Shown here is a 62-nucleotide RNA sequence from Cyanobacterium sp. T60_A2020_053, a member of the family "Glutamine riboswitch aptamer (glnA leader)".
The literature on the family includes a 2011 paper in RNA Biol by Ames and Breaker, "Bacterial aptamers that selectively bind glutamine".
Its family is annotated with glutamine binding in the Gene Ontology.

[Rfam]
RNA sequence: AUCGUUCAUCUGUUGACACAGACGGAAGUAAGAAGCGAUGAAAGUUUCUGAAGGAACGCGCC
Numbered sequence: 001a002u003c004g005u006u007c008a009u010c011u012g013u014u015g016a017c018a019c020a021g022a023c024g025g026a027a028g029u030a031a032g033a034a035g036c037g038a039u040g041a042a043a044g045u046u047u048c049u050g051a052a053g054g055a056a057c058g059c060g061c062c
Base pairs, nucleotide, nucleotide: 003058004057005056006055007054009022010021011020012019013018025059031049032048033047034046035045036044